[Rfam]
RNA sequence: AAUGCGGUAGCCGAAAAGCAUAUAGAGUAAGCA
Dot-bracket structure: .((((....[[......)))).........]].
Shown here is a 33-nucleotide sequence from Tenacibaculum adriaticum, a member of the family "DUF805b RNA". Clan: DUF805 clan. By type it is a cis-regulatory element. The organism belongs to Tenacibaculum, within Bacteria.